[Rfam]
RNA sequence: ACCCGAGUGGUGGAAUUGGUAGACACGCAAGACUUAAAAUCUUGUGGCCCUUGGGCCGUGCGGGUUCAAGUCCCGCCUCGGGUA
Numbered sequence: 001a002c003c004c005g006a007g008u009g010g011u012g013g014a015a016u017u018g019g020u021a022g023a024c025a026c027g028c029a030a031g032a033c034u035u036a037a038a039a040u041c042u043u044g045u046g047g048c049c050c051u052u053g054g055g056c057c058g059u060g061c062g063g064g065u066u067c068a069a070g071u072c073c074c075g076c077c078u079c080g081g082g083u084a
Base pairs, nucleotide, nucleotide: 001083002082003081004080005079006078007077010026011025012024028044029043030042031041032040060076061075062074063073064072
tRNA: an 84-nucleotide RNA from Parvicella tangerina. The family has 954 seed sequences and 5,335,975 matches in Rfam 15.1. Taxonomically the source falls in Parvicella (Bacteria, Flavobacteriia, Flavobacteriales, Parvicellaceae). The family's RNA type in Rfam is transfer RNA. Pairs were carried over by alignment from the consensus structure, which is taken from published work.